[Rfam]
RNA sequence: CCUGUGGAGCGUUAUAUCAAACGAGAGUAGCUUGUUCUUCGGAGUGGCAAAAUCGGACGCAAUGAAUCAGGAA
Numbered sequence: 001c002c003u004g005u006g007g008a009g010c011g012u013u014a015u016a017u018c019a020a021a022c023g024a025g026a027g028u029a030g031c032u033u034g035u036u037c038u039u040c041g042g043a044g045u046g047g048c049a050a051a052a053u054c055g056g057a058c059g060c061a062a063u064g065a066a067u068c069a070g071g072a073a
Stems, first nucleotide, its partner, number of pairs: 001071004009060005022055003030048003035043002
RAGATH-18 RNA: a 73-nucleotide sequence from Pseudoselenomonas lactilytica. It is one of the family's seed sequences. Taxonomically the source falls in Pseudoselenomonas lactilytica (Bacteria, Bacillota, Negativicutes, Selenomonadales).